[Rfam]
RNA sequence: CGUAUCGGACAACACGGGCAACCGUGUCAAACUCGCCUGUAAUUCCGGCAUCAUCACGCAAGUGAUGUGGCGACUGCUCUUGCUGCUGCGGCAGUGAUUUU
Dot-bracket structure: ...........((((((....)))))).....(((((..............((((((....)))))).)))))..........(((((...))))).....
Numbered sequence: 001c002g003u004a005u006c007g008g009a010c011a012a013c014a015c016g017g018g019c020a021a022c023c024g025u026g027u028c029a030a031a032c033u034c035g036c037c038u039g040u041a042a043u044u045c046c047g048g049c050a051u052c053a054u055c056a057c058g059c060a061a062g063u064g065a066u067g068u069g070g071c072g073a074c075u076g077c078u079c080u081u082g083c084u085g086c087u088g089c090g091g092c093a094g095u096g097a098u099u100u101u
Stems, first nucleotide, its partner, number of pairs: 012027006033073005052067006084096005
A member of the RNA family "DUF3577 RNA", 101 nucleotides long. It is one of the family's seed sequences. It is annotated as a cis-regulatory element.